[Rfam]
RNA: mir-574 microRNA precursor family
Organism: Cnephaeus nilssonii
RNA sequence: AGGCCCAGAGAGAGAAGCAGGGUCUGAUCCGAAGCCUCCAUGGCAGCUGUUGAUCAGCCCUUGCCUCUCUUUCUCUCUGAG
Number, nucleotide and partner (000 for none) at each position: 001a000002g000003g000004c000005c000006c000007a000008g073009a072010g071011a070012g069013a068014g067015a066016a000017g064018c063019a062020g061021g000022g059023u000024c057025u056026g055027a054028u053029c052030c000031g000032a000033a048034g047035c046036c000037u000038c000039c000040a000041u000042g000043g000044c000045a000046g035047c034048u033049g000050u000051u000052g029053a028054u027055c026056a025057g024058c000059c022060c000061u020062u019063g018064c017065c000066u015067c014068u013069c012070u011071u010072u009073c008074u000075c000076u000077c000078u000079g000080a000081g000